A member of the RNA family "FMN riboswitch aptamer (RFN element)" from Bacillus coahuilensis, 132 nucleotides long.
Nucleotides: 132
Base pairs, nucleotide, nucleotide: 004129005128006127007126008125009124010123017029018028019027031112032111033102034101035065036064037063038062060100061099070076082098083097084096085095086094104115105114106113
Number, partner (000 for none) and nucleotide at each position: 001000g002000u003000u004129c005128a006127u007126c008125u009124u010123c011000a012000g013000g014000g015000c016000g017029g018028g019027g020000u021000g022000a023000a024000a025000u026000u027019c028018c029017c030000c031112a032111c033102c034101g035065g036064c037063g038062g039000u040000a041000u042000u043000g044000a045000g046000u047000g048000a049000c050000a051000g052000a053000a054000c055000u056000c057000u058000c059000a060100g061099c062038c063037c064036g065035c066000g067000a068000g069000c070076c071000u072000u073000a074000g075000g076070g077000c078000a079000u080000g081000a082098u083097u084096u085095g086094g087000u088000g089000a090000g091000a092000u093000u094086c095085c096084a097083a098082a099061g100060c101034c102033g103000a104115c105114a106113g107000u108000a109000u110000a111032g112031u113106c114105u115104g116000g117000a118000u119000g120000g121000g122000a123010g124009a125008a126007g127006a128005u129004g130000c131000a132000a